[Rfam]
RNA: mir-3174 microRNA precursor family
Organism: Homo sapiens
RNA sequence: GUUACCUGGUAGUGAGUUAGAGAUGCAGAGCCCUGGGCUCCUCAGCAAACCUACUGGAUCUGCAUUUUAAUUCACAUGCAUGGUAAU
Numbered sequence: 001g002u003u004a005c006c007u008g009g010u011a012g013u014g015a016g017u018u019a020g021a022g023a024u025g026c027a028g029a030g031c032c033c034u035g036g037g038c039u040c041c042u043c044a045g046c047a048a049a050c051c052u053a054c055u056g057g058a059u060c061u062g063c064a065u066u067u068u069a070a071u072u073c074a075c076a077u078g079c080a081u082g083g084u085a086a087u
Base pairs, nucleotide, nucleotide: 001087002086003085004084005083006082009079010078011077012075013074014073015072016071017070018069020068021067022066023065024064025063026062027061028060029059031057032056034053035052036051037050